[Rfam]
RNA sequence: AUAGGGCAAGCCGAAAACCUUUAAAAAGAGUAGGCA
Number, nucleotide and partner (000 for none) at each position: 001a000002u000003a020004g019005g018006g000007c000008a000009a000010g035011c034012c033013g000014a000015a000016a000017a000018c005019c004020u003021u000022u000023a000024a000025a000026a000027a000028g000029a000030g000031u000032a000033g012034g011035c010036a000

About this RNA: This 36-nucleotide RNA from Aquimarina algicola belongs to the Rfam family "DUF805b RNA". It scores 46 bits against the family's covariance model. Taxonomically the source falls in Aquimarina (Bacteria, Bacteroidota, Flavobacteriales, Flavobacteriaceae).